[Rfam]
RNA sequence: UUAAUAAAUACACAUCAGCAAUAUAGAACGAGGGCAGACCUCGCAUCCUUAAAUAAUUAAAGUCUGGUGUCCCUAUGAUGAAUAACAUGACAACCGUAAAAUACUGGUCAUGGCUCGGCGUAUUCUCAACGUCGAUCCUCUUCUGGUGUCAGCUCCUCUGGCUGGCCUUACACUAAAUCGUAAAACCUCGCCACGGCGGGGUUUUUUGUUUAA
Numbered sequence: 001u002u003a004a005u006a007a008a009u010a011c012a013c014a015u016c017a018g019c020a021a022u023a024u025a026g027a028a029c030g031a032g033g034g035c036a037g038a039c040c041u042c043g044c045a046u047c048c049u050u051a052a053a054u055a056a057u058u059a060a061a062g063u064c065u066g067g068u069g070u071c072c073c074u075a076u077g078a079u080g081a082a083u084a085a086c087a088u089g090a091c092a093a094c095c096g097u098a099a100a101a102u103a104c105u106g107g108u109c110a111u112g113g114c115u116c117g118g119c120g121u122a123u124u125c126u127c128a129a130c131g132u133c134g135a136u137c138c139u140c141u142u143c144u145g146g147u148g149u150c151a152g153c154u155c156c157u158c159u160g161g162c163u164g165g166c167c168u169u170a171c172a173c174u175a176a177a178u179c180g181u182a183a184a185a186c187c188u189c190g191c192c193a194c195g196g197c198g199g200g201g202u203u204u205u206u207u208g209u210u211u212a213a
Stems, first nucleotide, its partner, number of pairs: 012070003018063002029043004109146001112138001115135006149165003153161002184203008
The record is a 213-nucleotide RNA sequence from Tichodroma muraria, which matches "Enterobacterial sRNA STnc180" in Rfam.